c-di-GMP-I riboswitch aptamer: an 88-nucleotide sequence from Salipaludibacillus neizhouensis. A search with the family's covariance model found it, with a score of 94 bits.

RNA sequence: CUUCGAUAAUGGCAAACUUAUUGAAAAAUAAGGACGCAAAGCUUCGGGUCUAAGGCUUUAUAAAAGCUAUGACAGCCGGGUUACCGAA
Numbered sequence: 001c002u003u004c005g006a007u008a009a010u011g012g013c014a015a016a017c018u019u020a021u022u023g024a025a026a027a028a029u030a031a032g033g034a035c036g037c038a039a040a041g042c043u044u045c046g047g048g049u050c051u052a053a054g055g056c057u058u059u060a061u062a063a064a065a066g067c068u069a070u071g072a073c074a075g076c077c078g079g080g081u082u083a084c085c086g087a088a
Stems, first nucleotide, its partner, number of pairs: 012037002017032006040082004045078003048073003055067004